[Rfam]
RNA sequence: AAUGAGUUGGUUAGCGCUUUUCAUUAUAAGUCUUAUGGGACUUUUUGUGUACUCAAAAAGCCCUAUACUAUCCAAAGUGGAGUUACCCACUACAGAUAGUAUAGAGCC
Numbered sequence: 001a002a003u004g005a006g007u008u009g010g011u012u013a014g015c016g017c018u019u020u021u022c023a024u025u026a027u028a029a030g031u032c033u034u035a036u037g038g039g040a041c042u043u044u045u046u047g048u049g050u051a052c053u054c055a056a057a058a059a060g061c062c063c064u065a066u067a068c069u070a071u072c073c074a075a076a077g078u079g080g081a082g083u084u085a086c087c088c089a090c091u092a093c094a095g096a097u098a099g100u101a102u103a104g105a106g107c108c
Stems, first nucleotide, its partner, number of pairs: 001025006009017001028043005060107002063104001065102008076091005
Annotation
Rfam assigns this 108-nucleotide RNA from Streptococcus merionis to the family "Streptococcus RNA 266". For this family Rfam cites "Identification of 88 regulatory small RNAs in the TIGR4 strain of the human pathogen Streptococcus pneumoniae" (Acebo et al., RNA, 2012). The base pairs follow the family's consensus structure. By type it is a small RNA. The source organism's lineage runs through Bacteria, Bacillati, Bacillota, Bacilli and Streptococcus.